[Rfam]
This 81-nucleotide RNA from Dioscorea zingiberensis belongs to the Rfam family "Small nucleolar RNA snoR53Y". The family's RNA type in Rfam is C/D-box small nucleolar RNA. Pairs were carried over by alignment from the consensus structure, which was predicted with WAR.

RNA sequence: GUUUCCGAUGAUGCUGAAUGAAACCAUGCUAAUGCUGAAAUGUUUUGGUGACUGAUAUUUACACUAUGUGCUGAGGAAUCC
Numbered sequence: 001g002u003u004u005c006c007g008a009u010g011a012u013g014c015u016g017a018a019u020g021a022a023a024c025c026a027u028g029c030u031a032a033u034g035c036u037g038a039a040a041u042g043u044u045u046u047g048g049u050g051a052c053u054g055a056u057a058u059u060u061a062c063a064c065u066a067u068g069u070g071c072u073g074a075g076g077a078a079u080c081c
Base pairs, nucleotide, nucleotide: 001080003078004077005076
Notes:
Rfam 15.1 lists 513 matches to the family in 230 species.